[Rfam]
RNA sequence: GAUUUGAGAGGGGAGAGGAGACAGGGAUGGAGCAGAGCAAGGGAUGGGGCAAGCAACAAACUUCACUUCCUUCCACUGAUCACCACCUGAUUAUGACAAGAGCGAGAGAGUUGUGAGAGAUGAGAGGUUCCGACUGUUGUUGUUGCUCCCUCCCUGCACUGCCUCUUCCCUGGCUCCCCUCCCCUCCCAUCUAU
Numbered sequence: 001g002a003u004u005u006g007a008g009a010g011g012g013g014a015g016a017g018g019a020g021a022c023a024g025g026g027a028u029g030g031a032g033c034a035g036a037g038c039a040a041g042g043g044a045u046g047g048g049g050c051a052a053g054c055a056a057c058a059a060a061c062u063u064c065a066c067u068u069c070c071u072u073c074c075a076c077u078g079a080u081c082a083c084c085a086c087c088u089g090a091u092u093a094u095g096a097c098a099a100g101a102g103c104g105a106g107a108g109a110g111u112u113g114u115g116a117g118a119g120a121u122g123a124g125a126g127g128u129u130c131c132g133a134c135u136g137u138u139g140u141u142g143u144u145g146c147u148c149c150c151u152c153c154c155u156g157c158a159c160u161g162c163c164u165c166u167u168c169c170c171u172g173g174c175u176c177c178c179c180u181c182c183c184c185u186c187c188c189a190u191c192u193a194u
Stems, first nucleotide, its partner, number of pairs: 018176003022172006030164001032162004037157003041153001043152001047148006
A member of the RNA family "MIR408 microRNA precursor family" from Triticum aestivum, 194 nucleotides long. Rfam links the family to the GO terms miRNA-mediated post-transcriptional gene silencing and RISC complex. Taxonomically the source falls in Triticum (Eukaryota, Embryophyta, Liliopsida, commelinids).